[Rfam]
Shown here is an 81-nucleotide RNA sequence from Senna tora, a member of the family "Small nucleolar RNA R160". Rfam classes the family as a C/D-box small nucleolar RNA. snoR160 is a C/D box small nucleolar RNA, which acts as a methylation guide for 25S ribosomal RNA in plants. snoR160 has been alternatively named snoZ270 in rice. NCBI's taxonomy places the organism under Eukaryota, Tracheophyta, Fabaceae, Cassieae, Senna. Pairs were carried over by alignment from the consensus structure. Rfam links the family to the GO terms RNA processing and nucleolus.
Nucleotides: 081
Stems, first nucleotide, its partner, number of pairs: 001081005
Number, partner (000 for none) and nucleotide at each position: 001081a002080g003079c004078a005077a006000a007000a008000u009000g010000a011000u012000g013000a014000a015000a016000c017000c018000a019000u020000u021000u022000u023000a024000a025000u026000c027000u028000g029000a030000a031000a032000a033000u034000g035000a036000u037000g038000u039000g040000g041000a042000g043000c044000a045000u046000u047000u048000g049000u050000u051000u052000c053000a054000a055000a056000u057000a058000g059000g060000u061000c062000u063000u064000c065000a066000a067000a068000g069000u070000u071000c072000u073000c074000u075000g076000a077005u078004u079003g080002c081001u